[Rfam]
RNA: Small nucleolar RNA U6-53/MBII-28
RNA sequence: CACCCGUGAUGACUCGCCAUGCUAAUACCGAGGCACCGAAGGGAGCCGUUUGCUCCGGAAUCGGGUGUCCGUGAGUUAAGCUCACUUCUUGUGGGAAGCCCUGAGGUGU
Numbered sequence: 001c002a003c004c005c006g007u008g009a010u011g012a013c014u015c016g017c018c019a020u021g022c023u024a025a026u027a028c029c030g031a032g033g034c035a036c037c038g039a040a041g042g043g044a045g046c047c048g049u050u051u052g053c054u055c056c057g058g059a060a061u062c063g064g065g066u067g068u069c070c071g072u073g074a075g076u077u078a079a080g081c082u083c084a085c086u087u088c089u090u091g092u093g094g095g096a097a098g099c100c101c102u103g104a105g106g107u108g109u
Base pairs, nucleotide, nucleotide: 001108002107003106004105042056043055044054045053